[Rfam]
Annotation
The record is a 128-nucleotide RNA from Carlito syrichta, which matches "Small nucleolar RNA SNORA9" in Rfam. A search with the family's covariance model found it, with a score of 106 bits. The organism belongs to Carlito, within Eukaryota. The family's consensus secondary structure was predicted with PFOLD. Rfam describes the family as follows. ACA9 is a member of the H/ACA class of snoRNA that guide the sites of modification of uridines to pseudouridines.

RNA sequence: AAGAAAAAAAAUGCUUGGGUCCACUGUGACCCUGUGCAUUUCUACAGUACUUUCCAGGACAGUUUUGAGGCAGUUUGAGGCCUUGUUCUGCUCCAUCCUGAGCAAGGUUAUAGAAAUUUCAGACAUUU
Numbered sequence: 001a002a003g004a005a006a007a008a009a010a011a012u013g014c015u016u017g018g019g020u021c022c023a024c025u026g027u028g029a030c031c032c033u034g035u036g037c038a039u040u041u042c043u044a045c046a047g048u049a050c051u052u053u054c055c056a057g058g059a060c061a062g063u064u065u066u067g068a069g070g071c072a073g074u075u076u077g078a079g080g081c082c083u084u085g086u087u088c089u090g091c092u093c094c095a096u097c098c099u100g101a102g103c104a105a106g107g108u109u110a111u112a113g114a115a116a117u118u119u120c121a122g123a124c125a126u127u128u
Stems, first nucleotide, its partner, number of pairs: 001052003012038003017032005066121005081107006088100001090098001